The family of this 91-nucleotide sequence from Conchiformibius steedae is "Neisseria metabolic switch regulator b (RcoF1/NgncR163)". The match comes from Rfam's covariance-model search (75 bits). Sibling sRNA described and independently named in three publications. The base pairs follow the family's consensus structure, which was predicted with RNAfold. Its family is annotated with regulation of translation, ncRNA-mediated, tricarboxylic acid cycle and protein binding in the Gene Ontology. For this family Rfam cites "The sibling sRNAs NgncR_162 and NgncR_163 of Neisseria gonorrhoeae participate in the expression control of metabolic, transport and regulatory proteins" (Bauer et al., Microbiology, 2017). Lineage of the source: Bacteria > Pseudomonadati > Neisseriales > Neisseriaceae > Conchiformibius.
[Rfam]
RNA sequence: CUGUUCUGACGCAGCAAUGCGUUGGAAUAUUUCUCCUCUAUUUCUCCUUUGUAGACUUGGCGCAUAUCCGUAAUCGGGUAUGCGCAUUUUU
Numbered sequence: 001c002u003g004u005u006c007u008g009a010c011g012c013a014g015c016a017a018u019g020c021g022u023u024g025g026a027a028u029a030u031u032u033c034u035c036c037u038c039u040a041u042u043u044c045u046c047c048u049u050u051g052u053a054g055a056c057u058u059g060g061c062g063c064a065u066a067u068c069c070g071u072a073a074u075c076g077g078g079u080a081u082g083c084g085c086a087u088u089u090u091u
Base pairs, nucleotide, nucleotide: 003028004027005026006025007024008023009022010021011020037055038054039053040052041051060085061084062083063082064081065080066079067078068077069076